[Rfam]
Rfam assigns this 132-nucleotide RNA sequence from Liparis tanakae to the family "Small nucleolar RNA SNORA14". A search with the family's covariance model found it, with a score of 38 bits. The family has 18 seed sequences and 848 matches in Rfam 15.1.

RNA sequence: GAGCAUCCUUAGUAAACCCCCUGGUUGCCAUGUGUGGUCUCUGGGACAAGAAAGGGUGCAAGAUCAACCUUGGAAUCCAAAGCUGAGAGCCUUGUGUCAGUAGCUCUGGGUUAUUUCACCUCCAAGACAUUU
Numbered sequence: 001g002a003g004c005a006u007c008c009u010u011a012g013u014a015a016a017c018c019c020c021c022u023g024g025u026u027g028c029c030a031u032g033u034g035u036g037g038u039c040u041c042u043g044g045g046a047c048a049a050g051a052a053a054g055g056g057u058g059c060a061a062g063a064u065c066a067a068c069c070u071u072g073g074a075a076u077c078c079a080a081a082g083c084u085g086a087g088a089g090c091c092u093u094g095u096g097u098c099a100g101u102a103g104c105u106c107u108g109g110g111u112u113a114u115u116u117c118a119c120c121u122c123c124a125a126g127a128c129a130u131u132u
Base pairs, nucleotide, nucleotide: 003059004058005057006056009051010050020045021044022043023042024041027038028037063132069126070125071124072123073122074121081112082111083110084109086107087106089104090103095100

It is annotated as an H/ACA-box small nucleolar RNA. Rfam's curators write: ACA14 is a member of the H/ACA class of snoRNA that guide the sites of modification of uridines to pseudouridines. The family's consensus secondary structure was predicted with RNAfold.